RNA: c-di-AMP riboswitch aptamer (ydaO/yuaA leader)
Organism: Paenibacillus dendrobii
RNA sequence: AGAGAAUCUAUGCCGAAUUUCCUCACACUAGGGAAGCGGGGGAACCACUUUGGGUGAAUUGAUCUUGCUUCAGAGGGAUCAUAGGGGACCUUCUACCGAAUCCUUAAGCUAACCUCGCAGGCACCGGAAGGGGUAUAU
Numbered sequence: 001a002g003a004g005a006a007u008c009u010a011u012g013c014c015g016a017a018u019u020u021c022c023u024c025a026c027a028c029u030a031g032g033g034a035a036g037c038g039g040g041g042g043a044a045c046c047a048c049u050u051u052g053g054g055u056g057a058a059u060u061g062a063u064c065u066u067g068c069u070u071c072a073g074a075g076g077g078a079u080c081a082u083a084g085g086g087g088a089c090c091u092u093c094u095a096c097c098g099a100a101u102c103c104u105u106a107a108g109c110u111a112a113c114c115u116c117g118c119a120g121g122c123a124c125c126g127g128a129a130g131g132g133g134u135a136u137a138u
Stems, first nucleotide, its partner, number of pairs: 011123004018035006036118006052103003060081007084097002